[Rfam]
RNA sequence: ACCGGAGGAGUAAUCAGGCUGAGUCUGAAGAGUGAGACUCAGAUGAUGGUAGCCUCCUGAAAGAAAAAGGAUGGAGAGAGCAGUCCUACUUAAAGGAAAGCAAAGGGCUGACUGUGCCAUCUGACAUGA
Numbered sequence: 001a002c003c004g005g006a007g008g009a010g011u012a013a014u015c016a017g018g019c020u021g022a023g024u025c026u027g028a029a030g031a032g033u034g035a036g037a038c039u040c041a042g043a044u045g046a047u048g049g050u051a052g053c054c055u056c057c058u059g060a061a062a063g064a065a066a067a068a069g070g071a072u073g074g075a076g077a078g079a080g081c082a083g084u085c086c087u088a089c090u091u092a093a094a095g096g097a098a099a100g101c102a103a104a105g106g107g108c109u110g111a112c113u114g115u116g117c118c119a120u121c122u123g124a125c126a127u128g129a
Stems, first nucleotide, its partner, number of pairs: 003059001004057005017044001019042001021040006068122003079113002081110007091102001

Shown here is a 129-nucleotide RNA sequence from Syrrhaptes paradoxus, a member of the family "Small Cajal body specific RNA 4". A reference for the family is Darzacq et al. (2002), "Cajal body-specific small nuclear RNAs: a novel class of 2'-O-methylation and pseudouridylation guide RNAs", EMBO J. It scores 87 bits against the family's covariance model. scaRNAs are a specific class of small nuclear RNAs which localise to the Cajal bodies and guide the modification of RNA polymerase II transcribed spliceosomal RNAs U1, U2, U4, U5 and U12. ACA26 belongs to the H/ACA box class of guide RNAs as it has the predicted hairpin-hinge-hairpin-tail structure, conserved H/ACA-box motifs and is found associated with GAR1. Rfam 15.1 lists 634 matches to the family in 510 species. Its family is annotated with Cajal body, RNA processing and nucleolus in the Gene Ontology. The source organism's lineage runs through Eukaryota, Chordata, Dipnotetrapodomorpha, Sauria and Syrrhaptes.